[Rfam]
A member of the RNA family "Guanidine-I riboswitch aptamer" from Halalkalibacillus sediminis, 101 nucleotides long. This family represents a conserved RNA structure found upstream of the ykkC and yxkD genes in Bacillus subtilis and related genes in other bacteria. Taxonomically the source falls in Halalkalibacillus (Bacteria, Bacillati, Bacillota, Caryophanales).
RNA sequence: AGGAAAGUUUUCUAGGGUUCCGCAGUGUGAGACUGGACUGGUCCGAGAGAAAACACAUAGUCUUAUAAACUAUGACACGGAGGGACAAAAGCCCGGGAGAU
Number, nucleotide and partner (000 for none) at each position: 001a000002g000003g000004a000005a000006a000007g054008u053009u052010u051011u050012c049013u000014a000015g044016g043017g000018u000019u000020c041021c040022g038023c035024a034025g033026u032027g000028u000029g000030a000031g000032a026033c025034u024035g023036g000037a000038c022039u000040g021041g020042u000043c016044c015045g000046a000047g000048a000049g012050a011051a010052a009053a008054c007055a000056c074057a073058u072059a071060g070061u069062c000063u000064u000065a000066u000067a000068a000069a061070c060071u059072a058073u057074g056075a000076c096077a000078c099079g000080g000081a000082g094083g093084g092085a000086c000087a000088a000089a000090a000091g000092c084093c083094c082095g000096g076097g000098a000099g078100a000101u000